[Rfam]
RNA sequence: UCUGGAUAAACUUGUAUCCAUCCAAGAGAAUGGAACAAGUCACUUUACAGAGUUAUAACAAGCAACACAUUUUGGGCUUGCUAAAGACUUACAUACAAGCGAAAGUUUGAAAUGUUUGGAUAACCGUACAUCCUUCAAUAUUUUAUAUUGUAAAAGUAAUCUUGAAUAAUAAUUAUUAAGUUUUCAAGUUACGGUAUG
Dot-bracket structure: ((((.(.(.((((((.((((((.....).)))))))))))...).).))))...............((((((.((((((........(.(......).)...)))))).))))))..[[[[.(((((((]]]]..(((((.....))))).....)....((((((.(.(........).).)))))).))))))...
Shown here is a 198-nucleotide sequence, a member of the family "IS605-orfB-I RNA". Rfam classes the family as a small RNA.